RNA: ASpks TB sRNA
RNA sequence: CUUGAGCGAGCCGAGCCGCAGCGGCCCGUGGCCCGCGCGGUCCUUUCCGUAGGUGGCGAGCAGCGCCUGAGCCUC
Numbered sequence: 001c002u003u004g005a006g007c008g009a010g011c012c013g014a015g016c017c018g019c020a021g022c023g024g025c026c027c028g029u030g031g032c033c034c035g036c037g038c039g040g041u042c043c044u045u046u047c048c049g050u051a052g053g054u055g056g057c058g059a060g061c062a063g064c065g066c067c068u069g070a071g072c073c074u075c
Stems, first nucleotide, its partner, number of pairs: 015025003033069001038065002043060003047056003
Dot-bracket structure: ..............(((.....))).......(....((...(((.(((....))).)))...))...)......